[Rfam]
RNA: mir-19 microRNA precursor family
RNA sequence: GGUUAUGGGGAGUUUUGUUGGUUUGCUCUCAGCUUCUCCCGGUGUUUGCUGUGCAAAUCCACGCAAAGCUCUCUGCACCU
Numbered sequence: 001g002g003u004u005a006u007g008g009g010g011a012g013u014u015u016u017g018u019u020g021g022u023u024u025g026c027u028c029u030c031a032g033c034u035u036c037u038c039c040c041g042g043u044g045u046u047u048g049c050u051g052u053g054c055a056a057a058u059c060c061a062c063g064c065a066a067a068g069c070u071c072u073c074u075g076c077a078c079c080u
Stems, first nucleotide, its partner, number of pairs: 004077001006075013020060002022057005028051001031050003